[Rfam]
Rfam assigns this 453-nucleotide sequence from Verrucomicrobium sp. GAS474 to the family "Bacterial RNase P class A". Rfam links the family to the GO terms ribonuclease P activity, dimeric ribonuclease P complex and tRNA processing. Rfam classes the family as a ribozyme. About the family: Ribonuclease P (RNase P) is a ubiquitous endoribonuclease, found in archaea, bacteria and eukarya as well as chloroplasts and mitochondria. Its best characterised activity is the generation of mature 5'-ends of tRNAs by cleaving the 5'-leader elements of precursor-tRNAs. Cellular RNase Ps are ribonucleoproteins.
RNA sequence: GGCGUCCGGACGGUCGUCGCUCGGGAGGGUCACUCCUUCCGGGAGGAAAGUCCGAACAUCGUCAGGCAGCGUGCCGCCGGAAGACAGCGGAGCCGUUCACGCGCAAGCGGAGCGGCAUGGAAAGUGUCACAGAAAAGAAGACCACCGGGAGGGGAGACCCUUCCGGAAAGGGUGAAAAGGCGGGGUAAGAGCCCACCCUUCCCCCGGCAACGGCGGGAAGCGAUAAACCCCACGCGAUGCAAGGCCGAACAGGGACCGAUCCCAGGAUCGCCUGAUCCGAUUCCCCUCGCAAGAGGGAGAUCCGGUUCCGGGUUAGGCCGCACCACGGUCACUGAUCGGGGCCGCCGGUCGUUCCGCAAGAAACGACGGCGGCAGAGAAAUGACGGCCCAAGGGACGGCAGGCGCAUCGGCCUCCGCCCGGGACAGAAUUCGGCUUAGGUCCGGACGCACGAU
Numbered sequence: 001g002g003c004g005u006c007c008g009g010a011c012g013g014u015c016g017u018c019g020c021u022c023g024g025g026a027g028g029g030u031c032a033c034u035c036c037u038u039c040c041g042g043g044a045g046g047a048a049a050g051u052c053c054g055a056a057c058a059u060c061g062u063c064a065g066g067c068a069g070c071g072u073g074c075c076g077c078c079g080g081a082a083g084a085c086a087g088c089g090g091a092g093c094c095g096u097u098c099a100c101g102c103g104c105a106a107g108c109g110g111a112g113c114g115g116c117a118u119g120g121a122a123a124g125u126g127u128c129a130c131a132g133a134a135a136a137g138a139a140g141a142c143c144a145c146c147g148g149g150a151g152g153g154g155a156g157a158c159c160c161u162u163c164c165g166g167a168a169a170g171g172g173u174g175a176a177a178a179g180g181c182g183g184g185g186u187a188a189g190a191g192c193c194c195a196c197c198c199u200u201c202c203c204c205c206g207g208c209a210a211c212g213g214c215g216g217g218a219a220g221c222g223a224u225a226a227a228c229c230c231c232a233c234g235c236g237a238u239g240c241a242a243g244g245c246c247g248a249a250c251a252g253g254g255a256c257c258g259a260u261c262c263c264a265g266g267a268u269c270g271c272c273u274g275a276u277c278c279g280a281u282u283c284c285c286c287u288c289g290c291a292a293g294a295g296g297g298a299g300a301u302c303c304g305g306u307u308c309c310g311g312g313u314u315a316g317g318c319c320g321c322a323c324c325a326c327g328g329u330c331a332c333u334g335a336u337c338g339g340g341g342c343c344g345c346c347g348g349u350c351g352u353u354c355c356g357c358a359a360g361a362a363a364c365g366a367c368g369g370c371g372g373c374a375g376a377g378a379a380a381u382g383a384c385g386g387c388c389c390a391a392g393g394g395a396c397g398g399c400a401g402g403c404g405c406a407u408c409g410g411c412c413u414c415c416g417c418c419c420g421g422g423a424c425a426g427a428a429u430u431c432g433g434c435u436u437a438g439g440u441c442c443g444g445a446c447g448c449a450c451g452a453u
Stems, first nucleotide, its partner, number of pairs: 002448009011438001012388007020043009048436003052433005057239004065324002069235005074090004079085001091118001092116007119230002124228002126224003142171002145166008179197002182194003198220001199218004204213003243346003253337002256334001258332001316330005348367006355360001